Proteobacterial sRNA psRNA2: a 205-nucleotide RNA sequence from Nitrosomonas europaea. The pairing is the family consensus, mapped onto this sequence.
RNA sequence: GGAUUACUCCUUUACGCUUUCGCGUUUGGUUGAUAAAGAUUCGCACCUCUAUCAAACCGGGUAAUCCCACCUCUUGGCAAGACCUGCUGUCAGAUCAAAUCUGAACUACUACAAUUUAUAGGCAAUCCGGAGUGGCAGAUCUGUCAUGGCGUAGUGAACAAACUGUUGUCCAAGUUCAGUAAGGACAUACUGAUCUUCCUCGUCA
Numbered sequence: 001g002g003a004u005u006a007c008u009c010c011u012u013u014a015c016g017c018u019u020u021c022g023c024g025u026u027u028g029g030u031u032g033a034u035a036a037a038g039a040u041u042c043g044c045a046c047c048u049c050u051a052u053c054a055a056a057c058c059g060g061g062u063a064a065u066c067c068c069a070c071c072u073c074u075u076g077g078c079a080a081g082a083c084c085u086g087c088u089g090u091c092a093g094a095u096c097a098a099a100u101c102u103g104a105a106c107u108a109c110u111a112c113a114a115u116u117u118a119u120a121g122g123c124a125a126u127c128c129g130g131a132g133u134g135g136c137a138g139a140u141c142u143g144u145c146a147u148g149g150c151g152u153a154g155u156g157a158a159c160a161a162a163c164u165g166u167u168g169u170c171c172a173a174g175u176u177c178a179g180u181a182a183g184g185a186c187a188u189a190c191u192g193a194u195c196u197u198c199c200u201c202g203u204c205a
Stems, first nucleotide, its partner, number of pairs: 001067007009060002014025004028058004032053004037048002069203002077150001081145002084143001089106002091103005109138002113133001172197003176193006